[Rfam]
RNA sequence: AAGACUAUACUUUCAGGGAUCAUUUCUAUAGUUCAUUACUAGAGAAGUUCCUCUGAACGUGUAGAACACUGGCAACCAUGAGGAAGACAUACAGUGUUCUGUCCUGAGUGUGAAGCCAGGUCUUGGUGUUGCUUUGCUGCAAGUACCAUUUGCCACUGAUAAUCGUUUUUGUCUCCCUCUGGGACAGUAAGGGAAAGGAUGCCGUCGGAGUGAU
Numbered sequence: 001a002a003g004a005c006u007a008u009a010c011u012u013u014c015a016g017g018g019a020u021c022a023u024u025u026c027u028a029u030a031g032u033u034c035a036u037u038a039c040u041a042g043a044g045a046a047g048u049u050c051c052u053c054u055g056a057a058c059g060u061g062u063a064g065a066a067c068a069c070u071g072g073c074a075a076c077c078a079u080g081a082g083g084a085a086g087a088c089a090u091a092c093a094g095u096g097u098u099c100u101g102u103c104c105u106g107a108g109u110g111u112g113a114a115g116c117c118a119g120g121u122c123u124u125g126g127u128g129u130u131g132c133u134u135u136g137c138u139g140c141a142a143g144u145a146c147c148a149u150u151u152g153c154c155a156c157u158g159a160u161a162a163u164c165g166u167u168u169u170u171g172u173c174u175c176c177c178u179c180u181g182g183g184a185c186a187g188u189a190a191g192g193g194a195a196a197g198g199a200u201g202c203c204g205u206c207g208g209a210g211u212g213a214u
Base pairs, nucleotide, nucleotide: 002040003039006035009032010031011030015027016026017025018024049065050064054061075214077212078211079210094202095201096200097199098198099197100196102194103193104192105191108166109165110164119153124148125147126146127145129142130141131140132139167190168189169187170186171185172184173183174182175181
The family of this 214-nucleotide RNA sequence from Piliocolobus tephrosceles is "Small nucleolar RNA U3". For this family Rfam cites "Nuclear retention elements of U3 small nucleolar RNA" (Speckmann et al., Mol Cell Biol, 1999). Rfam links the family to the GO terms RNA processing and nucleolus. The family's consensus secondary structure is taken from published work. It scores 139 bits against the family's covariance model. Rfam's curators write: Small nucleolar RNAs (snoRNAs) are involved in the processing and modification of rRNA in the nucleolus. There are two main classes of snoRNAs: the box C/D class, and the box H/ACA class. U3 snoRNA is a member of the box C/D class. Indeed, the box C/D element is a subset of the six short sequence elements found in all U3 snoRNAs, namely boxes A, A', B, C, C', and D. The U3 snoRNA secondary structure is characterised by a small 5' domain (with boxes A and A'), and a larger 3' domain (with boxes B, C, C', and D), the two domains being linked by a single-stranded hinge. Boxes B and C form the B/C motif, which appears to be exclusive to U3 snoRNAs, and boxes C' and D form the C'/D motif. The latter is functionally similar to the C/D motifs found in other snoRNAs. The 5' domain and the hinge region act as a pre-rRNA-binding domain. The 3' domain has conserved protein-binding sites. Both the box B/C and box C'/D motifs are sufficient for nuclear retention of U3 snoRNA. The box C'/D motif is also necessary for nucleolar localisation, stability and hyper-methylation of U3 snoRNA. Both box B/C and C'/D motifs are involved in specific protein interactions and are necessary for the rRNA processing functions of U3 snoRNA. Taxonomically the source falls in Piliocolobus (Eukaryota, Teleostomi, Theria, Simiiformes). Its Rfam clan is "U3 clan".